[Rfam]
RNA sequence: GGUCGGAUAAGGCGCUCGCGCCGCAUCCGACACCAUGCGCAGAUGCCUGAUGCGACGCUGACGCGUCUUAUCAUGCC
Numbered sequence: 001g002g003u004c005g006g007a008u009a010a011g012g013c014g015c016u017c018g019c020g021c022c023g024c025a026u027c028c029g030a031c032a033c034c035a036u037g038c039g040c041a042g043a044u045g046c047c048u049g050a051u052g053c054g055a056c057g058c059u060g061a062c063g064c065g066u067c068u069u070a071u072c073a074u075g076c077c
Stems, first nucleotide, its partner, number of pairs: 002031007011022004045076002048073005054067005
RNA: Nucleoid-associated noncoding RNA 4 (CssrE)